Shown here is a 124-nucleotide RNA sequence from Mesocricetibacter intestinalis, a member of the family "Ribosomal S15 leader". The match comes from Rfam's covariance-model search (90 bits). Pairs were carried over by alignment from the consensus structure, which is taken from published work. About the family: The E. coli Ribosomal S15 gene 5' UTR can form two alternative structures. One that is a series of three hairpins, The other includes a pseudoknot. The literature on the family includes a 1996 paper in Biochimie by Benard et al., "Pseudoknot and translational control in the expression of the S15 ribosomal protein".
RNA sequence: UGUCGUGGCUGAAUUAGAGAUCGGCUAACGAUGUAUUAUUCACAAACCCUAUUAAAGAGGAUUUUAUAUGUCUCUAAGUACAGAAAAAAAAGCGGCGAUUGUCGCUGAAUUCGGUCGUGAUGCA
Numbered sequence: 001u002g003u004c005g006u007g008g009c010u011g012a013a014u015u016a017g018a019g020a021u022c023g024g025c026u027a028a029c030g031a032u033g034u035a036u037u038a039u040u041c042a043c044a045a046a047c048c049c050u051a052u053u054a055a056a057g058a059g060g061a062u063u064u065u066a067u068a069u070g071u072c073u074c075u076a077a078g079u080a081c082a083g084a085a086a087a088a089a090a091a092g093c094g095g096c097g098a099u100u101g102u103c104g105c106u107g108a109a110u111u112c113g114g115u116c117g118u119g120a121u122g123c124a
Base pairs, nucleotide, nucleotide: 007026008025009024010023011022012021048078050076057074058073059072